[Rfam]
Shown here is a 184-nucleotide RNA sequence from Vibrio maritimus, a member of the family "Lysine riboswitch aptamer". NCBI's taxonomy places the organism under Bacteria, Pseudomonadati, Gammaproteobacteria, Vibrionales, Vibrio. From the family's description: Riboswitches are metabolite binding domains within certain messenger RNAs that serve as precision sensors for their corresponding targets. It scores 133 bits against the family's covariance model.

RNA sequence: UCUUGAUGUAGAGGCGCGAUAAUGAUCAGUAACCAUCGUUGGGGUGAUACCAAUGAACGGUGGUGAAAGGCAUUGUCGCCGAAGUGAGAAAAGACCAUCAAUCUUCCUCGCUGGGGUUGUCUUCGAAAGGAACAACACUGCCAUAGUCUAUUAUAUUGUUAAACUAUGGAGCGCUACUGUAGGG
Numbered sequence: 001u002c003u004u005g006a007u008g009u010a011g012a013g014g015c016g017c018g019a020u021a022a023u024g025a026u027c028a029g030u031a032a033c034c035a036u037c038g039u040u041g042g043g044g045u046g047a048u049a050c051c052a053a054u055g056a057a058c059g060g061u062g063g064u065g066a067a068a069g070g071c072a073u074u075g076u077c078g079c080c081g082a083a084g085u086g087a088g089a090a091a092a093g094a095c096c097a098u099c100a101a102u103c104u105u106c107c108u109c110g111c112u113g114g115g116g117u118u119g120u121c122u123u124c125g126a127a128a129g130g131a132a133c134a135a136c137a138c139u140g141c142c143a144u145a146g147u148c149u150a151u152u153a154u155a156u157u158g159u160u161a162a163a164c165u166a167u168g169g170a171g172c173g174c175u176a177c178u179g180u181a182g183g184g
Stems, first nucleotide, its partner, number of pairs: 008177004016079009032064008083112006090105002093103002113139002116136005122130002141169007